[Rfam]
RNA: FMN riboswitch aptamer (RFN element)
RNA sequence: AAUGCACUUCAGGGCGGGGCGUAAUUCCCCACCGGCGGUAAAGCCCGCGAGCCGAAAGGCUGAUUCGGUGAAACUCCGAAGCCGACAGUAUAGUCUGGAUGAAAGAAGUAGGUA
Number, nucleotide and partner (000 for none) at each position: 001a000002a000003u112004g000005c000006a109007c108008u107009u106010c105011a000012g000013g000014g000015c000016g000017g029018g028019g027020c000021g000022u000023a000024a000025u000026u000027c019028c018029c017030c000031a094032c093033c084034g083035g048036c047037g046038g045039u000040a000041a000042a000043g082044c081045c038046c037047g036048c035049g000050a000051g060052c059053c058054g000055a000056a000057a000058g053059g052060c051061u000062g000063a000064u080065u079066c078067g077068g076069u000070g000071a000072a000073a000074c000075u000076c068077c067078g066079a065080a064081g044082c043083c034084g033085a000086c097087a096088g095089u000090a000091u000092a000093g032094u031095c088096u087097g086098g000099a000100u000101g000102a000103a000104a000105g010106a009107a008108g007109u006110a000111g000112g003113u000114a000